[Rfam]
RNA sequence: AUCUGGAGAGAGGCGCGACGCGCCCACCGAAGGGGAUCUUCCGCCGCAUCACCGCUUCACUGGCGCAAGAGAAACUCUCAGGUACAUGGACAGAU
Numbered sequence: 001a002u003c004u005g006g007a008g009a010g011a012g013g014c015g016c017g018a019c020g021c022g023c024c025c026a027c028c029g030a031a032g033g034g035g036a037u038c039u040u041c042c043g044c045c046g047c048a049u050c051a052c053c054g055c056u057u058c059a060c061u062g063g064c065g066c067a068a069g070a071g072a073a074a075c076u077c078u079c080a081g082g083u084a085c086a087u088g089g090a091c092a093g094a095u
Stems, first nucleotide, its partner, number of pairs: 001095005012024004026083003029079002033077003039070002
Shown here is a 95-nucleotide RNA sequence from Caballeronia telluris, a member of the family "Glycine riboswitch aptamer".
Gene Ontology term of the family: glycine biosynthetic process.
The pairing is the family consensus, mapped onto this sequence.